[Rfam]
The family of this 356-nucleotide sequence from Chthonomonas calidirosea is "Bacterial RNase P class A". From the family's description: Ribonuclease P (RNase P) is a ubiquitous endoribonuclease, found in archaea, bacteria and eukarya as well as chloroplasts and mitochondria. Its best characterised activity is the generation of mature 5'-ends of tRNAs by cleaving the 5'-leader elements of precursor-tRNAs. Cellular RNase Ps are ribonucleoproteins. RNA from bacterial RNase Ps retains its catalytic activity in the absence of the protein subunit, i.e. it is a ribozyme. Isolated eukaryotic and archaeal RNase P RNA has not been shown to retain its catalytic function, but is still essential for the catalytic activity of the holoenzyme. Although the archaeal and eukaryotic holoenzyme s have a much greater protein content than the bacterial ones, the RNA cores from all the three lineages are homologous -- helices corresponding to P1, P2, P3, P4, and P10/11 are common to all cellular RNase P RNAs. Yet, there is considerable sequence variation, particularly among the eukaryotic RNAs. Identified in Yersinia as Ysr151/RnpB. It scores 309 bits against the family's covariance model. Taxonomically the source falls in Chthonomonas calidirosea (Bacteria, Bacillati, Chthonomonadia, Chthonomonas).
RNA sequence: GCAGAGGGCCGGGUGGCCGCUGCAGCUGCAUUGCGUGUGCACGCUGCAGAGGAAAGUCCGGGCUCCAUAGGGCACGAUGCCGGAUAACAUCCGGGCGGGGCGACCCGACGGAAAGUGCCACAGAAAACACACAGCCGUGGCCGUUUGGCUGCGGUAACGGUGAAAAGGUGCGGUAAGAGCGCACCGGCGGUGUGGUAACACACCGGCCUGGCAAACCCCAUCGGGAGCAAGAUCAAAGGGAGGGGUUGAGGCGGCCCGCGGACCCUCCCGGUAGAUCGCUUGAGGAGCCGGGUAACCGACUCCCCAGAGAGAUGGCCACACAAAGACAGAACCCGGCUUAUAGGCCCUCUGCUUCU
Numbered sequence: 001g002c003a004g005a006g007g008g009c010c011g012g013g014u015g016g017c018c019g020c021u022g023c024a025g026c027u028g029c030a031u032u033g034c035g036u037g038u039g040c041a042c043g044c045u046g047c048a049g050a051g052g053a054a055a056g057u058c059c060g061g062g063c064u065c066c067a068u069a070g071g072g073c074a075c076g077a078u079g080c081c082g083g084a085u086a087a088c089a090u091c092c093g094g095g096c097g098g099g100g101c102g103a104c105c106c107g108a109c110g111g112a113a114a115g116u117g118c119c120a121c122a123g124a125a126a127a128c129a130c131a132c133a134g135c136c137g138u139g140g141c142c143g144u145u146u147g148g149c150u151g152c153g154g155u156a157a158c159g160g161u162g163a164a165a166a167g168g169u170g171c172g173g174u175a176a177g178a179g180c181g182c183a184c185c186g187g188c189g190g191u192g193u194g195g196u197a198a199c200a201c202a203c204c205g206g207c208c209u210g211g212c213a214a215a216c217c218c219c220a221u222c223g224g225g226a227g228c229a230a231g232a233u234c235a236a237a238g239g240g241a242g243g244g245g246u247u248g249a250g251g252c253g254g255c256c257c258g259c260g261g262a263c264c265c266u267c268c269c270g271g272u273a274g275a276u277c278g279c280u281u282g283a284g285g286a287g288c289c290g291g292g293u294a295a296c297c298g299a300c301u302c303c304c305c306a307g308a309g310a311g312a313u314g315g316c317c318a319c320a321c322a323a324a325g326a327c328a329g330a331a332c333c334c335g336g337c338u339u340a341u342a343g344g345c346c347c348u349c350u351g352c353u354u355c356u
Base pairs, nucleotide, nucleotide: 001352002351003350004349005348006347007346008345009344010343011341013319014318015317016316017315018314020049021048022047023046024045025044026043054339055338056337058336059335060334061333062332063227064226065225066224070257071256072255073254075223076222077221078220079219080094081093082092083091084090095109096107097106098105099104110218111217115216116215117212118211119210132159134155135154136153137152138151139150140149141148142147167185168184169183170182171181172180187207188205189204190203191202192201193200194199231277232276233275234274239268240267241266242265243264244263251259252258284303285302286301287300289298290297291296